[Rfam]
RNA sequence: UGGGUCGGUGAGGCGGUCGCGUCACGACACCGCGCAAGCGGUGGCCGUGCCGAGGAACGUCCGGGCUCCACAGAGGAGAACGGUGGGUAACACCCACCCGGGGUAACCCGCGAGAAAGUGCAACAGAGAGUAGACCGCCAGGAGUGGCUUGCCACUUCCGGUAAGGCUGAAAGGGUGGUGUAAGAGACCACCGGCGUUCGUGGUGACACGGGCGGCCAGGUAAACCUCGUUCGGAGCAAGGCCAGACAGAAGACAUUGAGGCUCCUCGCUGAGUCUUCGGGUAGGCCGCUAGAGGAUGCUGGUAACAGUAUCCCGAGAGAGAUGACCGUCACCGCUGGUUUUCGGGCCAGCGCGACAGAACCCGGCGUAUGAUCCGGCCCAUUCC
Dot-bracket structure: ((((((((..((((((((.((.((((.(...............).)))).))....[[[.[[[[[((((...[[[[.((((((((((.....)))))(((((....)))).)((...((((.............(((((.(((((((....))))))).)))..)).......((((((.......)))))).(((((((((....)))))))).)...))..)))))))))))))...((((.....((((((.....(((.]]]])))..)))))).....))))......((((((((....))))))))..........)))))))..............................]]]]]]]].)...))))))))....
RNA: Bacterial RNase P class A
Organism: Leucobacter insecticola